Source information:
This 142-nucleotide RNA sequence from Apostichopus japonicus belongs to the Rfam family "Small nucleolar RNA SNORD10". Taxonomically the source falls in Apostichopus (Eukaryota, Bilateria, Echinozoa, Aspidochirotacea). It scores 46 bits against the family's covariance model. Gene Ontology terms of the family: RNA processing and nucleolus. Pairs were carried over by alignment from the consensus structure, which was predicted with WAR. Rfam classes the family as a C/D-box small nucleolar RNA.
RNA sequence: GCGAGAUGAUGAUAACCAUGCGUGUCAUUUGAGUCCCAUCUUCCUCAAAGCAUACCACUGCUCUCUGUUUGUGCGUUCUGCCAAGCUGUCUGCGUUGUAUGCUUGAGUUUGGGAUAUAUGAUACAGAGAGGUUUCUGAUUGC
Number, nucleotide and partner (000 for none) at each position: 001g142002c141003g140004a139005g000006a000007u000008g000009a000010u000011g000012a000013u000014a000015a000016c000017c000018a000019u000020g000021c000022g000023u000024g000025u000026c000027a000028u000029u000030u000031g000032a000033g000034u000035c000036c000037c000038a000039u000040c000041u000042u000043c000044c000045u000046c000047a000048a104049a103050g102051c101052a100053u099054a098055c097056c000057a000058c000059u000060g000061c000062u000063c000064u000065c000066u000067g000068u000069u000070u000071g000072u000073g000074c000075g000076u000077u000078c000079u000080g000081c000082c000083a000084a000085g000086c000087u000088g000089u000090c000091u000092g000093c000094g000095u000096u000097g055098u054099a053100u052101g051102c050103u049104u048105g000106a000107g000108u000109u000110u000111g000112g000113g000114a000115u000116a000117u000118a000119u000120g000121a000122u000123a000124c000125a000126g000127a000128g000129a000130g000131g000132u000133u000134u000135c000136u000137g000138a000139u004140u003141g002142c001